RNA sequence: UAAUGAAUUUUGUACUGUGCAUAUCACUUAGACGGGUUCCAUAAAUUCAUCAGGUAG
Numbered sequence: 001u002a003a004u005g006a007a008u009u010u011u012g013u014a015c016u017g018u019g020c021a022u023a024u025c026a027c028u029u030a031g032a033c034g035g036g037u038u039c040c041a042u043a044a045a046u047u048c049a050u051c052a053g054g055u056a057g
Stems, first nucleotide, its partner, number of pairs: 019037002022034001024032002
RNA: Plastid-ndhJ 3UTR RNA